[Rfam]
RNA sequence: CAUUGUCGUAAAGCGCCAGGACUGCGGUGGACGCCGCAGUUGACGAGGUGGAGGACAAUCGAGUUUUCGGCGGAUACCUCCCGGCUCAUGCACCGGAGCCGAGGAACCGGAACACAAAAGAACGGGGCGACCCGUUCGACAAAAGUUCCGGUACGGUGCCCA
Numbered sequence: 001c002a003u004u005g006u007c008g009u010a011a012a013g014c015g016c017c018a019g020g021a022c023u024g025c026g027g028u029g030g031a032c033g034c035c036g037c038a039g040u041u042g043a044c045g046a047g048g049u050g051g052a053g054g055a056c057a058a059u060c061g062a063g064u065u066u067u068c069g070g071c072g073g074a075u076a077c078c079u080c081c082c083g084g085c086u087c088a089u090g091c092a093c094c095g096g097a098g099c100c101g102a103g104g105a106a107c108c109g110g111a112a113c114a115c116a117a118a119a120g121a122a123c124g125g126g127g128c129g130a131c132c133c134g135u136u137c138g139a140c141a142a143a144a145g146u147u148c149c150g151g152u153a154c155g156g157u158g159c160c161c162a
Base pairs, nucleotide, nucleotide: 020041021040022039023038024037025036026035027034050081051080052079053078054077059070060069061068062067082101083100084099085098086097087096106152107151108150109149110148111147112146120137121136122135123134124133125132126131
Rfam assigns this 162-nucleotide sequence from Melghirimyces profundicolus to the family "glmS glucosamine-6-phosphate activated ribozyme aptamer". NCBI's taxonomy places the organism under Bacteria, Bacillati, Bacilli, Caryophanales, Melghirimyces. It is annotated as a riboswitch. The match comes from Rfam's covariance-model search (112 bits). A reference for the family is Winkler et al. (2004), "Control of gene expression by a natural metabolite-responsive ribozyme", Nature. Rfam describes the family as follows. This entry contains a glucosamine-6-phosphate activated ribozyme that is found in the mRNA for GlmS. GlmS is an enzyme that uses fructose-6-phosphate and glutamine to generate glucosamine-6-phosphate. The ribozyme catalyses self cleavage of the glmS mRNA that is thought to regulate GlmS activity.